Shown here is a 595-nucleotide part of an RNA from Schizosaccharomyces pombe, a member of the family "Eukaryotic small subunit ribosomal RNA". A reference for the family is Yusupov et al. (2001), "Crystal structure of the ribosome at 5.5 A resolution", Science. Lineage of the source: Eukaryota > Dikarya > Schizosaccharomycetes > Schizosaccharomycetales > Schizosaccharomyces. It scores 1825 bits against the family's covariance model. The base pairs follow the family's consensus structure, which is taken from published work.
RNA sequence: AGUCAUAUGCUUGUCUCAAAGAUUAAGCCAUGCAUGUCUAAGUAUAAGCAAUUUUGUACUGUGAAACUGCGAAUGGCUCAUUAAAUCAGUUAUCGUUUAUUUGAUAGUACCUCAACUACUUGGAUAACCGUGGUAAUUCUAGAGCUAAUACAUGCUAAAAAUCCCGACUUUUUUGGAAGGGAUGUAUUUAUUAGAUAAAAAACCAAUGCCUUCGGGCUUUUUUUGGUGAGUCAUAAUAACUUUUCGAAUCGCAUGGCCUUGCGCCGGCGAUGGUUCAUUCAAAUUUCUGCCCUAUCAACUUUCGAUGGUAGGAUAGAGGCCUACCAUGGUUUUAACGGGUAACGGGGAAUUAGGGUUCGAUUCCGGAGAGGGAGCCUGAGAAACGGCUACCACAUCCAAGGAAGGCAGCAGGCGCGCAAAUUACCCAAUCCCGACACGGGGAGGUAGUGACAAGAAAUAACAAUGCAGGGCCCUUUCGGGUCUUGUAAUUGGAAUGAGUACAAUGUAAAUACCUUAACGAGGAACAAUUGGAGGGCAAGUCUGGUGCCAGCAGCCGCGGUAAUUCCAGCUCCAAUAGCGUAUAUUAAAGUUGUUG
Numbered sequence: 001a002g003u004c005a006u007a008u009g010c011u012u013g014u015c016u017c018a019a020a021g022a023u024u025a026a027g028c029c030a031u032g033c034a035u036g037u038c039u040a041a042g043u044a045u046a047a048g049c050a051a052u053u054u055u056g057u058a059c060u061g062u063g064a065a066a067c068u069g070c071g072a073a074u075g076g077c078u079c080a081u082u083a084a085a086u087c088a089g090u091u092a093u094c095g096u097u098u099a100u101u102u103g104a105u106a107g108u109a110c111c112u113c114a115a116c117u118a119c120u121u122g123g124a125u126a127a128c129c130g131u132g133g134u135a136a137u138u139c140u141a142g143a144g145c146u147a148a149u150a151c152a153u154g155c156u157a158a159a160a161a162u163c164c165c166g167a168c169u170u171u172u173u174u175g176g177a178a179g180g181g182a183u184g185u186a187u188u189u190a191u192u193a194g195a196u197a198a199a200a201a202a203c204c205a206a207u208g209c210c211u212u213c214g215g216g217c218u219u220u221u222u223u224u225g226g227u228g229a230g231u232c233a234u235a236a237u238a239a240c241u242u243u244u245c246g247a248a249u250c251g252c253a254u255g256g257c258c259u260u261g262c263g264c265c266g267g268c269g270a271u272g273g274u275u276c277a278u279u280c281a282a283a284u285u286u287c288u289g290c291c292c293u294a295u296c297a298a299c300u301u302u303c304g305a306u307g308g309u310a311g312g313a314u315a316g317a318g319g320c321c322u323a324c325c326a327u328g329g330u331u332u333u334a335a336c337g338g339g340u341a342a343c344g345g346g347g348a349a350u351u352a353g354g355g356u357u358c359g360a361u362u363c364c365g366g367a368g369a370g371g372g373a374g375c376c377u378g379a380g381a382a383a384c385g386g387c388u389a390c391c392a393c394a395u396c397c398a399a400g401g402a403a404g405g406c407a408g409c410a411g412g413c414g415c416g417c418a419a420a421u422u423a424c425c426c427a428a429u430c431c432c433g434a435c436a437c438g439g440g441g442a443g444g445u446a447g448u449g450a451c452a453a454g455a456a457a458u459a460a461c462a463a464u465g466c467a468g469g470g471c472c473c474u475u476u477c478g479g480g481u482c483u484u485g486u487a488a489u490u491g492g493a494a495u496g497a498g499u500a501c502a503a504u505g506u507a508a509a510u511a512c513c514u515u516a517a518c519g520a521g522g523a524a525c526a527a528u529u530g531g532a533g534g535g536c537a538a539g540u541c542u543g544g545u546g547c548c549a550g551c552a553g554c555c556g557c558g559g560u561a562a563u564u565c566c567a568g569c570u571c572c573a574a575u576a577g578c579g580u581a582u583a584u585u586a587a588a589g590u591u592g593u594u595g
Stems, first nucleotide, its partner, number of pairs: 001585003005582007014455003020448001021415001027413003031410003036070002041068003048062002077368003087289003092284002096282002102277003119154001121152002128144001131141003161183005168176002188239006202227004208217003249270004254266004291339003298330003305327008343365004347358004370391002373388003393404001395402002421446001423445003429441005461491003464487010498518002500515001502514001528574006541568004550557002